mir-71 microRNA precursor family: a 70-nucleotide RNA from Macrostomum lignano. It scores 55 bits against the family's covariance model. Gene Ontology terms of the family: miRNA-mediated post-transcriptional gene silencing and RISC complex. On this family, see Yu et al., PLoS One 2008: "The silkworm (Bombyx mori) microRNAs and their expressions in multiple developmental stages".

[Rfam]
RNA sequence: UUGAUAUGAAAGACAUGGGUAGUGAGAUGCAGAGCUAUUCGCAGCUCGUUACCCUGUCUUUCGUAUUCAC
Dot-bracket structure: .......((((((((.(((.((((((.((............)).)))))).)))))))))))........